[Rfam]
mir-36 microRNA precursor family: a 108-nucleotide RNA sequence from Coptotermes formosanus. Rfam 15.1 lists 199 matches to the family in 31 species.
RNA sequence: GGGCUCAGUGCGUACCGCGCUGUAAACACUCUCCACUUCGGUUAUAAAACAUUAAGAGACUGGUUUUUAUAACCGAAGUGGAGAGUGUUUACAGCGCGGUACGCACUG
Number, nucleotide and partner (000 for none) at each position: 001g000002g000003g000004c000005u000006c000007a000008g000009u000010g000011c000012g000013u000014a000015c000016c098017g097018c096019g095020c094021u093022g092023u000024a090025a089026a088027c087028a086029c085030u084031c083032u082033c081034c080035a079036c078037u077038u000039c075040g000041g073042u072043u071044a070045u069046a068047a067048a066049a000050c000051a000052u000053u000054a000055a000056g000057a000058g000059a000060c000061u000062g000063g000064u000065u000066u048067u047068u046069a045070u044071a043072a042073c041074c000075g039076a000077a037078g036079u035080g034081g033082a032083g031084a030085g029086u028087g027088u026089u025090u024091a000092c022093a021094g020095c019096g018097c017098g016099g000100u000101a000102c000103g000104c000105a000106c000107u000108g000
The organism belongs to Coptotermes, within Eukaryota.
Gene Ontology terms of the family: miRNA-mediated post-transcriptional gene silencing and RISC complex.
The literature on the family includes a 2009 paper in Genome Biol by Kato et al., "Dynamic expression of small non-coding RNAs, including novel microRNAs and piRNAs/21U-RNAs, during Caenorhabditis elegans development".